[Rfam]
RNA sequence: GGGGUGUGCUCAGGGCAGGGGGCUUGAAGAAUGGCUCCUCUGUUUAUGACACACUCAACAGAGGUCUGAGGUCACAGUGAUGAGAGGCCCAAACUUGUGGCCUCCCCAUGAACAAAUACCCUACACAU
Numbered sequence: 001g002g003g004g005u006g007u008g009c010u011c012a013g014g015g016c017a018g019g020g021g022g023c024u025u026g027a028a029g030a031a032u033g034g035c036u037c038c039u040c041u042g043u044u045u046a047u048g049a050c051a052c053a054c055u056c057a058a059c060a061g062a063g064g065u066c067u068g069a070g071g072u073c074a075c076a077g078u079g080a081u082g083a084g085a086g087g088c089c090c091a092a093a094c095u096u097g098u099g100g101c102c103u104c105c106c107c108a109u110g111a112a113c114a115a116a117u118a119c120c121c122u123a124c125a126c127a128u
Base pairs, nucleotide, nucleotide: 002056003055004054005053006052007051008050013045014044015043016042017041018040019039020038021037022035023034024033070120071119072118077113078112081110082109084103086101088099090097091096
Small nucleolar RNA SNORA11: a 128-nucleotide RNA sequence from Nomascus leucogenys. The base pairs follow the family's consensus structure, which was predicted with RNAalifold. On this family, see Gu et al., Nucleic Acids Res 2005: "A novel experimental approach for systematic identification of box H/ACA snoRNAs from eukaryotes". U107 (SNORA11) is a member of the H/ACA class of snoRNAs that guide the sites of modification of uridines to pseudouridines. This snoRNA was identified by RT-PCR from blood cells and its expression confirmed by Northern blot analysis.